[Rfam]
RNA: permuted transfer-messenger RNA
Organism: Glacieibacterium arshaanense
RNA sequence: GGCGAUAAACGGCGUCGUGAAAUAGGCACAGCGGACCCGGGGGCGGUACCCGGCGGCUCCACCAUUAUUUCUGGUUGUUCCGGAAGGUUUGGGGCCGAACUAGGAUCGACGUGUGUUGAAAGACGAGAGCUUUUGCCCGGCCUGAAAACGCCGUUAAACUGUUCAAAACACCAUAAAUGCCAACGACAACGAGGCAUUCGCAAUCGCAGCGUAA
Numbered sequence: 001g002g003c004g005a006u007a008a009a010c011g012g013c014g015u016c017g018u019g020a021a022a023u024a025g026g027c028a029c030a031g032c033g034g035a036c037c038c039g040g041g042g043g044c045g046g047u048a049c050c051c052g053g054c055g056g057c058u059c060c061a062c063c064a065u066u067a068u069u070u071c072u073g074g075u076u077g078u079u080c081c082g083g084a085a086g087g088u089u090u091g092g093g094g095c096c097g098a099a100c101u102a103g104g105a106u107c108g109a110c111g112u113g114u115g116u117u118g119a120a121a122g123a124c125g126a127g128a129g130c131u132u133u134u135g136c137c138c139g140g141c142c143u144g145a146a147a148a149c150g151c152c153g154u155u156a157a158a159c160u161g162u163u164c165a166a167a168a169c170a171c172c173a174u175a176a177a178u179g180c181c182a183a184c185g186a187c188a189a190c191g192a193g194g195c196a197u198u199c200g201c202a203a204u205c206g207c208a209g210c211g212u213a214a
Stems, first nucleotide, its partner, number of pairs: 001137005015126004027115003031112003037053005054097007138153004